[Rfam]
This 80-nucleotide RNA sequence from Roseburia sp. CAG:182 belongs to the Rfam family "Streptococcus sRNA SpF59 (ldcC RNA)". The organism belongs to Roseburia, within Bacteria. The family's RNA type in Rfam is small RNA. The literature on the family includes a 2012 paper in PLoS Pathog by Mann et al., "Control of virulence by small RNAs in Streptococcus pneumoniae".
RNA sequence: UGCCCACCGGGUGUGAAGCUGGUCAAAGAUCCGGCGUUUUAUCCGGUUAAGCCCAUACGGACAGGCGGGGCAGCUGCCGA
Numbered sequence: 001u002g003c004c005c006a007c008c009g010g011g012u013g014u015g016a017a018g019c020u021g022g023u024c025a026a027a028g029a030u031c032c033g034g035c036g037u038u039u040u041a042u043c044c045g046g047u048u049a050a051g052c053c054c055a056u057a058c059g060g061a062c063a064g065g066c067g068g069g070g071c072a073g074c075u076g077c078c079g080a
Stems, first nucleotide, its partner, number of pairs: 001072005006047008